[Rfam]
RNA: U2 spliceosomal RNA
Organism: Aplysia californica
RNA sequence: AUCGCUUCUCGGCCUUUUGGCUAAGAUCAAAGUGUAGUAUCUGUUCUUAUCAGCUUAAUAUCUGAUACGUGGCUUCCUAGCGACUACGAUAUUAAACUGAUUUUUGGACACAGGCGAGAUGCCCGGGGCUUGCUCCGCUCUCGCCACGGGUCGGCCCGGUAUUGCAGUCCCUCCGGGAAUGGCCCAAUAUAA
Numbered sequence: 001a002u003c004g005c006u007u008c009u010c011g012g013c014c015u016u017u018u019g020g021c022u023a024a025g026a027u028c029a030a031a032g033u034g035u036a037g038u039a040u041c042u043g044u045u046c047u048u049a050u051c052a053g054c055u056u057a058a059u060a061u062c063u064g065a066u067a068c069g070u071g072g073c074u075u076c077c078u079a080g081c082g083a084c085u086a087c088g089a090u091a092u093u094a095a096a097c098u099g100a101u102u103u104u105u106g107g108a109c110a111c112a113g114g115c116g117a118g119a120u121g122c123c124c125g126g127g128g129c130u131u132g133c134u135c136c137g138c139u140c141u142c143g144c145c146a147c148g149g150g151u152c153g154g155c156c157c158g159g160u161a162u163u164g165c166a167g168u169c170c171c172u173c174c175g176g177g178a179a180u181g182g183c184c185c186a187a188u189a190u191a192a
Stems, first nucleotide, its partner, number of pairs: 007026003011022004048067006069084002072081003113145007125136004148185006155177005